Shown here is a 75-nucleotide RNA sequence from Haemonchus placei, a member of the family "mir-5928 microRNA precursor family". Pairs were carried over by alignment from the consensus structure, which was predicted with RNAalifold. Rfam links the family to the GO terms miRNA-mediated post-transcriptional gene silencing and RISC complex. The source organism's lineage runs through Eukaryota, Opisthokonta, Strongyloidea, Trichostrongylidae and Haemonchus.

RNA sequence: AGCCCAAAUCUUAAGUACAGUAGAAUAGUAUGAUCAGCUGACCUUACUAAUCUACCCUACUUCAGAUUUGGGCCC
Numbered sequence: 001a002g003c004c005c006a007a008a009u010c011u012u013a014a015g016u017a018c019a020g021u022a023g024a025a026u027a028g029u030a031u032g033a034u035c036a037g038c039u040g041a042c043c044u045u046a047c048u049a050a051u052c053u054a055c056c057c058u059a060c061u062u063c064a065g066a067u068u069u070g071g072g073c074c075c
Stems, first nucleotide, its partner, number of pairs: 002073008011064001013062005020055004026049005032043001034041002